RNA sequence: AGUUUGCCAUGAUGAAACGCAUGUUAAGUUCAUGUUUCAGCUGAUCGCCCUGAUUAAACACAUGCUCUGAGCAGAAU
Number, nucleotide and partner (000 for none) at each position: 001a077002g000003u075004u074005u073006g072007c071008c000009a000010u000011g000012a000013u000014g000015a000016a000017a000018c000019g000020c000021a000022u000023g000024u000025u000026a000027a000028g000029u000030u000031c000032a000033u000034g000035u000036u000037u000038c000039a000040g000041c000042u000043g000044a000045u000046c000047g000048c000049c000050c000051u000052g000053a000054u000055u000056a000057a000058a000059c000060a000061c000062a000063u000064g000065c000066u000067c000068u000069g000070a000071g007072c006073a005074g004075a003076a000077u001
This 77-nucleotide RNA from Neophocaena asiaeorientalis belongs to the Rfam family "Small nucleolar RNA SNORD126".
Gene Ontology terms of the family: RNA processing and nucleolus.
Taxonomically the source falls in Neophocaena asiaeorientalis (Eukaryota, Deuterostomia, Eutheria, Whippomorpha).
For this family Rfam cites "snoSeeker: an advanced computational package for screening of guide and orphan snoRNA genes in the human genome" (Yang et al., Nucleic Acids Res, 2006).